RNA anti-toxin A: an 89-nucleotide RNA sequence from Melissococcus plutonius.
It is annotated as an antitoxin RNA.
NCBI's taxonomy places the organism under Bacteria, Bacillati, Enterococcaceae, Melissococcus, Melissococcus plutonius.
The base pairs follow the family's consensus structure, which was predicted with RNAalifold.
The match comes from Rfam's covariance-model search (53 bits).
[Rfam]
RNA sequence: UAAGAGUAUAAAAAAGAGAGAUAUAUUGACGCAUAUCCCUCAAUUGUAAAACCGUUUAAGAUGGUGACAAAAUUUUAGAUUAUUAAAAA
Dot-bracket structure: .....................(((........)))...............((((((...))))))........................